RNA: Rhodo-rpoB RNA
Organism: Ruegeria lacuscaerulensis
Nucleotides: 093
Base pairs, nucleotide, nucleotide: 001044002043003042004041005040010032011031012030013029014028015027016026066093067092068091069090070089071088072087073086074085075084
Number, partner (000 for none) and nucleotide at each position: 001044g002043g003042a004041u005040c006000g007000g008000g009000a010032g011031g012030c013029c014028g015027c016026c017000a018000c019000u020000c021000g022000g023000g024000a025000c026016g027015g028014u029013g030012g031011c032010c033000a034000u035000g036000a037000a038000u039000u040005g041004a042003u043002c044001c045000g046000g047000a048000c049000g050000u051000g052000u053000c054000g055000u056000c057000u058000c059000g060000u061000a062000u063000g064000g065000a066093a067092a068091a069090g070089g071088u072087g073086c074085c075084g076000g077000a078000g079000c080000c081000c082000g083000g084075c085074g086073g087072u088071g089070c090069c091068u092067u093066u